RNA: tRNA
Organism: Devosia sp. A8/3-2
RNA sequence: CAGGGCGUAGCGCAGCUUGGUAGCGCAUUUGUCUGGGGGACAAAGGGUCGCAGGUUCAAAUCCUGUCGCUCCGA
Numbered sequence: 001c002a003g004g005g006c007g008u009a010g011c012g013c014a015g016c017u018u019g020g021u022a023g024c025g026c027a028u029u030u031g032u033c034u035g036g037g038g039g040a041c042a043a044a045g046g047g048u049c050g051c052a053g054g055u056u057c058a059a060a061u062c063c064u065g066u067c068g069c070u071c072c073g074a
Base pairs, nucleotide, nucleotide: 001073003071004070005069006068007067010026011025012024013023028044029043030042031041032040050066051065052064053063054062